[Rfam]
RNA sequence: AACGUGGGCCGUGACUGGCGCUGAGGUGGAGUACCACCGGGGAGCGAGCCCGGCGGCCGUGUGCCGCCUUCUGCCGCGCGCCUGGGCGAUUCAC
Numbered sequence: 001a002a003c004g005u006g007g008g009c010c011g012u013g014a015c016u017g018g019c020g021c022u023g024a025g026g027u028g029g030a031g032u033a034c035c036a037c038c039g040g041g042g043a044g045c046g047a048g049c050c051c052g053g054c055g056g057c058c059g060u061g062u063g064c065c066g067c068c069u070u071c072u073g074c075c076g077c078g079c080g081c082c083u084g085g086g087c088g089a090u091u092c093a094c
Base pairs, nucleotide, nucleotide: 003053006050007049010046011045012044015041016040017082018081019080020079021078026037027036028035029034072088073087074086075085